[Rfam]
RNA sequence: UGUAACUACAGGUUAUAAUACCAAUAACACUGUCCUACGGAUGAGAUCGAACAAAUUGUUUAAGCGUGAUAUAUAGCACGACCGGCCAUCUGGGAUAAUACACUCUUCACAGAGUGUAUUAUUUUAUUAUA
Numbered sequence: 001u002g003u004a005a006c007u008a009c010a011g012g013u014u015a016u017a018a019u020a021c022c023a024a025u026a027a028c029a030c031u032g033u034c035c036u037a038c039g040g041a042u043g044a045g046a047u048c049g050a051a052c053a054a055a056u057u058g059u060u061u062a063a064g065c066g067u068g069a070u071a072u073a074u075a076g077c078a079c080g081a082c083c084g085g086c087c088a089u090c091u092g093g094g095a096u097a098a099u100a101c102a103c104u105c106u107u108c109a110c111a112g113a114g115u116g117u118a119u120u121a122u123u124u125u126a127u128u129a130u131a
Stems, first nucleotide, its partner, number of pairs: 008033004012028005038092006047085003050060003064082001065080004096121010